[Rfam]
RNA sequence: UAAAAAUAUGUGUGUUUCGCGCGUAUAUGCCUGAGAAUAUGGCUCAGGUGUCUCUACCAGGCAACCGUAAAUUGCUUGACUACGUGCGGAGAAACAGGAAUG
Numbered sequence: 001u002a003a004a005a006a007u008a009u010g011u012g013u014g015u016u017u018c019g020c021g022c023g024u025a026u027a028u029g030c031c032u033g034a035g036a037a038u039a040u041g042g043c044u045c046a047g048g049u050g051u052c053u054c055u056a057c058c059a060g061g062c063a064a065c066c067g068u069a070a071a072u073u074g075c076u077u078g079a080c081u082a083c084g085u086g087c088g089g090a091g092a093a094a095c096a097g098g099a100a101u102g
Base pairs, nucleotide, nucleotide: 018088019087020086021085022084023083024082025081029049030048031047032046033045034044035043058078059077060076061075062074063073064072